[Rfam]
RNA sequence: AGGAGGAACAGCCUUAGUUGCUAUGGCAACUCUGGAAGCCUGGAUUCAGCCUCCACAGGAACUAGGGGGCUCUCUGUCUGCGGGCCUGGAGGCUCCGGGGCGGG
Numbered sequence: 001a002g003g004a005g006g007a008a009c010a011g012c013c014u015u016a017g018u019u020g021c022u023a024u025g026g027c028a029a030c031u032c033u034g035g036a037a038g039c040c041u042g043g044a045u046u047c048a049g050c051c052u053c054c055a056c057a058g059g060a061a062c063u064a065g066g067g068g069g070c071u072c073u074c075u076g077u078c079u080g081c082g083g084g085c086c087u088g089g090a091g092g093c094u095c096c097g098g099g100g101c102g103g104g
Stems, first nucleotide, its partner, number of pairs: 002096004009088003012084003020077002025072001028071001030069004036063001039059004
RNA: mir-8834 microRNA precursor family
Organism: Nyctereutes procyonoides